[Rfam]
RNA sequence: GCGCUCUUAGUUCAGUUCGGUAGAACGUGGGUCUCCAAAACCCAAUGUCGUAGGUUCAAAUCCUACAGAGCGUG
Numbered sequence: 001g002c003g004c005u006c007u008u009a010g011u012u013c014a015g016u017u018c019g020g021u022a023g024a025a026c027g028u029g030g031g032u033c034u035c036c037a038a039a040a041c042c043c044a045a046u047g048u049c050g051u052a053g054g055u056u057c058a059a060a061u062c063c064u065a066c067a068g069a070g071c072g073u074g
Stems, first nucleotide, its partner, number of pairs: 001073007010026004028044005050066005